Overview: Rfam assigns this 79-nucleotide sequence from Erinaceus europaeus to the family "Small nucleolar RNA SNORD26". A search with the family's covariance model found it, with a score of 74 bits. The organism belongs to Erinaceus, within Eukaryota. For this family Rfam cites "A mammalian gene with introns instead of exons generating stable RNA products" (Tycowski et al., Nature, 1996). The family's RNA type in Rfam is C/D-box small nucleolar RNA. Gene Ontology terms of the family: RNA processing and nucleolus. The family's consensus secondary structure was predicted with PFOLD.
[Rfam]
RNA sequence: CUGCGGGGAUGAUUUCCACAAUCGAACUCUCUCUUUCUGAUGGCGUAGUGGAGAGAUCCGUAGGACAUUUCUGAGUAGC
Numbered sequence: 001c002u003g004c005g006g007g008g009a010u011g012a013u014u015u016c017c018a019c020a021a022u023c024g025a026a027c028u029c030u031c032u033c034u035u036u037c038u039g040a041u042g043g044c045g046u047a048g049u050g051g052a053g054a055g056a057u058c059c060g061u062a063g064g065a066c067a068u069u070u071c072u073g074a075g076u077a078g079c
Base pairs, nucleotide, nucleotide: 001078002077003076004075